[Rfam]
About this RNA: mir-130 microRNA precursor family: a 92-nucleotide sequence from Phrynocephalus forsythii. On this family, see Lagos-Quintana et al., Curr Biol 2002: "Identification of tissue-specific microRNAs from mouse". Pairs were carried over by alignment from the consensus structure, which was predicted with PFOLD.

Nucleotides: 092
Stems, first nucleotide, its partner, number of pairs: 001092003005087006012080008022070006
Number, partner (000 for none) and nucleotide at each position: 001092u002091u003090g004000u005087g006086g007085c008084u009083g010082g011000a012080g013079c014078c015077c016076u017075u018074u019073a020000a021000g022070c023069c024068u025067g026066g027065c028000g029000c030000u031000g032000u033000c034000a035000g036000c037000a038000c039000c040000c041000a042000g043000g044000g045000g046000a047000c048000c049000c050000c051000c052000u053000g054000g055000u056000a057000c058000c059000u060000a061000c062000u063000g064000g065027g066026c067025c068024a069023g070022g071000u072000u073019u074018a075017a076016a077015g078014g079013g080012c081000u082010c083009c084008a085007g086006c087005c088000a089000u090003u091002g092001a